Small nucleolar RNA SNORA31: a 131-nucleotide sequence from Mandrillus leucophaeus. The match comes from Rfam's covariance-model search (40 bits). Its family is annotated with nucleolus and RNA processing in the Gene Ontology.
[Rfam]
RNA sequence: AUGUAUUUAUCUGACAGACCUGGAGCAGUUACUGGAUGCUGUUAAUGUUUCCACUACAGAUGCAAGAAAAGUGUCCCACACUCUCUGUCUGUCUGACUGUGACAGCCAAGAUUAAAUUAGGUAGGACAGUA
Numbered sequence: 001a002u003g004u005a006u007u008u009a010u011c012u013g014a015c016a017g018a019c020c021u022g023g024a025g026c027a028g029u030u031a032c033u034g035g036a037u038g039c040u041g042u043u044a045a046u047g048u049u050u051c052c053a054c055u056a057c058a059g060a061u062g063c064a065a066g067a068a069a070a071g072u073g074u075c076c077c078a079c080a081c082u083c084u085c086u087g088u089c090u091g092u093c094u095g096a097c098u099g100u101g102a103c104a105g106c107c108a109a110g111a112u113u114a115a116a117u118u119a120g121g122u123a124g125g126a127c128a129g130u131a
Stems, first nucleotide, its partner, number of pairs: 002064007012053002016050004024040004029035001075121002078118001084111003089105005